RNA sequence: GCCGGGCUUGGUAGCGCUUGCCUAUAACCCAGUGGGGGCAUGAAAGUGAGUUGGACCGUGAGUUGGUCCAGUAGGUUGGGCUUGGAGUUGCUUUGUCUGGCUUGCCCGUUCCAAGUUGAGAGUUGGUUCAUGUGGCUUUAGCGAAGGCUUUGGUCACUUCUACCUUAGAGAAGGAGGCACUGCGUUAGACUGGCUUUACAGGGCUGCGAUAACUCUUCGCUCCCGACAGUGGAAGGAUCACAAGCUUGGGCUCUCCUGGUCCAGUUUGCCUGCUGGUCUCUCUCUAAGGGACACUCACUUUU
Numbered sequence: 001g002c003c004g005g006g007c008u009u010g011g012u013a014g015c016g017c018u019u020g021c022c023u024a025u026a027a028c029c030c031a032g033u034g035g036g037g038g039c040a041u042g043a044a045a046g047u048g049a050g051u052u053g054g055a056c057c058g059u060g061a062g063u064u065g066g067u068c069c070a071g072u073a074g075g076u077u078g079g080g081c082u083u084g085g086a087g088u089u090g091c092u093u094u095g096u097c098u099g100g101c102u103u104g105c106c107c108g109u110u111c112c113a114a115g116u117u118g119a120g121a122g123u124u125g126g127u128u129c130a131u132g133u134g135g136c137u138u139u140a141g142c143g144a145a146g147g148c149u150u151u152g153g154u155c156a157c158u159u160c161u162a163c164c165u166u167a168g169a170g171a172a173g174g175a176g177g178c179a180c181u182g183c184g185u186u187a188g189a190c191u192g193g194c195u196u197u198a199c200a201g202g203g204c205u206g207c208g209a210u211a212a213c214u215c216u217u218c219g220c221u222c223c224c225g226a227c228a229g230u231g232g233a234a235g236g237a238u239c240a241c242a243a244g245c246u247u248g249g250g251c252u253c254u255c256c257u258g259g260u261c262c263a264g265u266u267u268g269c270c271u272g273c274u275g276g277u278c279u280c281u282c283u284c285u286a287a288g289g290g291a292c293a294c295u296c297a298c299u300u301u302u
Base pairs, nucleotide, nucleotide: 001039002038003037004023005022006021007020010017028036029035030034042302043301044300045299046298047297048296049295050294051293053292056289057288060284062281065278066277068276069275070274071273072272073271074270075269076268078262079261080260081259082258084256085255090251092250093249097248099246100245101244102243103242104241106236107235109234110233111232112231113230115227116226117225118224120222121221122220123219125164126163127162130159132157133156134155135154136153137152140149141148142147165170172217173216174215175214176213183208184207185206190201191200192199
Source information:
Rfam assigns this 302-nucleotide RNA sequence from Cynara cardunculus to the family "Plant signal recognition particle RNA". The source organism's lineage runs through Eukaryota, Gunneridae, Carduoideae, Cardueae and Cynara cardunculus subsp. cardunculus. For this family Rfam cites "Crystal structure of the ribonucleoprotein core of the signal recognition particle" (Batey et al., Science, 2000). The family has 63 seed sequences and 4,988 matches in Rfam 15.1. The family's consensus secondary structure is taken from published work.